[Rfam]
RNA sequence: ACCUUCCUUGUCUUGGGGAGCAGAAAUGUCCAAUGAACGUCUAGUGAGGGCAUUGCUGCUGACACCAAAGAUAUUACCCCCGCUCACUGGUCGCCUGCGAUCAGGGUUCGGAAUUUUUGGACCA
Numbered sequence: 001a002c003c004u005u006c007c008u009u010g011u012c013u014u015g016g017g018g019a020g021c022a023g024a025a026a027u028g029u030c031c032a033a034u035g036a037a038c039g040u041c042u043a044g045u046g047a048g049g050g051c052a053u054u055g056c057u058g059c060u061g062a063c064a065c066c067a068a069a070g071a072u073a074u075u076a077c078c079c080c081c082g083c084u085c086a087c088u089g090g091u092c093g094c095c096u097g098c099g100a101u102c103a104g105g106g107u108u109c110g111g112a113a114u115u116u117u118u119g120g121a122c123c124a
Base pairs, nucleotide, nucleotide: 005019006018007017008016009015020059021058022057023056025054026053027052028051029050030049031048037045038044080111081110082109085106088103089102090101091100092099093098